[Rfam]
RNA sequence: ACACGGGAAAGGAGGUGGUCUCAGGAAUGCAUAGUUCUUGGACUCGUGAGGUGGCUGCUCGUUAGCCGCCCUGCUCGACGCAGGACCUGGUGACACCUGGUUCGCCGGCCGGACGGCUGGCAAUCUCGAGCAGUCACCCGGCCCGUGGGCUCCCGGGGCUUAGUCCUCCUGGGCCGUGUCAUCCGACACGGAAGCAGCCCACGGGCCGCUUUUU
Numbered sequence: 001a002c003a004c005g006g007g008a009a010a011g012g013a014g015g016u017g018g019u020c021u022c023a024g025g026a027a028u029g030c031a032u033a034g035u036u037c038u039u040g041g042a043c044u045c046g047u048g049a050g051g052u053g054g055c056u057g058c059u060c061g062u063u064a065g066c067c068g069c070c071c072u073g074c075u076c077g078a079c080g081c082a083g084g085a086c087c088u089g090g091u092g093a094c095a096c097c098u099g100g101u102u103c104g105c106c107g108g109c110c111g112g113a114c115g116g117c118u119g120g121c122a123a124u125c126u127c128g129a130g131c132a133g134u135c136a137c138c139c140g141g142c143c144c145g146u147g148g149g150c151u152c153c154c155g156g157g158g159c160u161u162a163g164u165c166c167u168c169c170u171g172g173g174c175c176g177u178g179u180c181a182u183c184c185g186a187c188a189c190g191g192a193a194g195c196a197g198c199c200c201a202c203g204g205g206c207c208g209c210u211u212u213u214u
Base pairs, nucleotide, nucleotide: 014059015058016057017056018055019054061121062120063119064118065117066116068114070112071111073109074108075107139208140207141206142205143204144203145202146201147200148199149198150197151196153172154171155170156169157168158167
RNA: Actinobacteria sRNA Ms_IGR-5